[Rfam]
Rfam assigns this 121-nucleotide RNA from Tetrapisispora phaffii to the family "Small nucleolar RNA snR48". The organism belongs to Tetrapisispora phaffii, within Eukaryota.
RNA sequence: UUUUACAUGAUGAUUUCAUUAUUGCAAUUACCUAAUAUUUUAUUUUCUGGCAUCUCUAAUGUUAGAAUGGAAGUUUCAGUACAACUAUUCGAUGAAUACAACCAUUGACAUUUUUCUGACA
Numbered sequence: 001u002u003u004u005a006c007a008u009g010a011u012g013a014u015u016u017c018a019u020u021a022u023u024g025c026a027a028u029u030a031c032c033u034a035a036u037a038u039u040u041u042a043u044u045u046u047c048u049g050g051c052a053u054c055u056c057u058a059a060u061g062u063u064a065g066a067a068u069g070g071a072a073g074u075u076u077c078a079g080u081a082c083a084a085c086u087a088u089u090c091g092a093u094g095a096a097u098a099c100a101a102c103c104a105u106u107g108a109c110a111u112u113u114u115u116c117u118g119a120c121a
Base pairs, nucleotide, nucleotide: 066089067088068087069086
Pairs were carried over by alignment from the consensus structure, which was predicted with ILM.
Rfam classes the family as a C/D-box small nucleolar RNA.
Clan: SNORD60 clan.
The literature on the family includes a 1999 paper in Science by Lowe and Eddy, "A computational screen for methylation guide snoRNAs in yeast".